[Rfam]
RNA sequence: GGUGCCAGAGGGAGGGAUACCAAUCCAGCCUUAGGAAAAGAAACCUUCCACAGGAGUCUUGGCGUUUGGCGACCGUCCUUAUGACUUA
Numbered sequence: 001g002g003u004g005c006c007a008g009a010g011g012g013a014g015g016g017a018u019a020c021c022a023a024u025c026c027a028g029c030c031u032u033a034g035g036a037a038a039a040g041a042a043a044c045c046u047u048c049c050a051c052a053g054g055a056g057u058c059u060u061g062g063c064g065u066u067u068g069g070c071g072a073c074c075g076u077c078c079u080u081a082u083g084a085c086u087u088a
Stems, first nucleotide, its partner, number of pairs: 002087001004085001006083002010079004015074002018071001020069004025064001029062002038060004044054003
RNA: mir-9014 microRNA precursor family
Organism: Equus asinus